TPP riboswitch aptamer (THI element): a 120-nucleotide RNA sequence from Paracoccus salipaludis.

[Rfam]
RNA sequence: CGUCCUCACCAGGGGUGUCCCGACAAGGGGCUGAGAUACUGCUGGGCCGCAAGGCAGCGCAGUGACCCUACGAACCUGAUCCAGUUCAUGCUGGCGUAGGGACGGUGCGGAUGCCUUGCC
Numbered sequence: 001c002g003u004c005c006u007c008a009c010c011a012g013g014g015g016u017g018u019c020c021c022g023a024c025a026a027g028g029g030g031c032u033g034a035g036a037u038a039c040u041g042c043u044g045g046g047c048c049g050c051a052a053g054g055c056a057g058c059g060c061a062g063u064g065a066c067c068c069u070a071c072g073a074a075c076c077u078g079a080u081c082c083a084g085u086u087c088a089u090g091c092u093g094g095c096g097u098a099g100g101g102a103c104g105g106u107g108c109g110g111a112u113g114c115c116u117u118g119c120c
Stems, first nucleotide, its partner, number of pairs: 007107004011069004017031005038063005075100004081094004
Dot-bracket structure: ......((((((((..(((((.....)))))......(((((................)))))..)))).....((((..((((......))))..))))...)))).............